[Rfam]
RNA sequence: AUUCGAGAGUUUGAGGCCAUAGCAGAAGCAUUCAAAGGGCAGCCCUGUCAGAUUUCAAAGAAUAUGUUUAUUUUGCU
Numbered sequence: 001a002u003u004c005g006a007g008a009g010u011u012u013g014a015g016g017c018c019a020u021a022g023c024a025g026a027a028g029c030a031u032u033c034a035a036a037g038g039g040c041a042g043c044c045c046u047g048u049c050a051g052a053u054u055u056c057a058a059a060g061a062a063u064a065u066g067u068u069u070a071u072u073u074u075g076c077u
Stems, first nucleotide, its partner, number of pairs: 013045001015044003021077007028040002049066002052063004
The record is a 77-nucleotide sequence from Alligator mississippiensis, which matches "Mammalian CPEB3 ribozyme" in Rfam. The base pairs follow the family's consensus structure, which is taken from published work. NCBI's taxonomy places the organism under Eukaryota, Deuterostomia, Dipnotetrapodomorpha, Amniota, Alligator.